This 118-nucleotide RNA from Drosophila pseudoobscura belongs to the Rfam family "mir-2528 microRNA precursor family". Pairs were carried over by alignment from the consensus structure, which was predicted with RNAalifold. Gene Ontology terms of the family: miRNA-mediated post-transcriptional gene silencing and RISC complex.
RNA sequence: ACGGAAUUUUACGUAUUCAUCCGUUUUGUCUGUAUCGCGAAGUUUGGAGUCGUUUUUGUUGAAGCGAUUCCACGCAUUUUUUGAGUGCUGAUAUUUUGGCUUGAAAAUAAGAGGCCGU
Numbered sequence: 001a002c003g004g005a006a007u008u009u010u011a012c013g014u015a016u017u018c019a020u021c022c023g024u025u026u027u028g029u030c031u032g033u034a035u036c037g038c039g040a041a042g043u044u045u046g047g048a049g050u051c052g053u054u055u056u057u058g059u060u061g062a063a064g065c066g067a068u069u070c071c072a073c074g075c076a077u078u079u080u081u082u083g084a085g086u087g088c089u090g091a092u093a094u095u096u097u098g099g100c101u102u103g104a105a106a107a108u109a110a111g112a113g114g115c116c117g118u
Stems, first nucleotide, its partner, number of pairs: 001118004007112005016105004021099003027093004032088003035084002037081001039079003042075002045072012